[Rfam]
RNA: Vault RNA
Organism: Cavia porcellus
RNA sequence: GGGCUGGCUUUAGCCCAGCAGUUUCUUCGAGUCUGGCUUCCCAACCACCCAGGCCGAUUGGCCGGGGGGUUCCAGACCCGUGAGUGCUCUCUAGUCCUUUA
Numbered sequence: 001g002g003g004c005u006g007g008c009u010u011u012a013g014c015c016c017a018g019c020a021g022u023u024u025c026u027u028c029g030a031g032u033c034u035g036g037c038u039u040c041c042c043a044a045c046c047a048c049c050c051a052g053g054c055c056g057a058u059u060g061g062c063c064g065g066g067g068g069g070u071u072c073c074a075g076a077c078c079c080g081u082g083a084g085u086g087c088u089c090u091c092u093a094g095u096c097c098u099u100u101a
Base pairs, nucleotide, nucleotide: 002096003095004094005093006092007091013085014084016082018081019080021078026075027074029072030071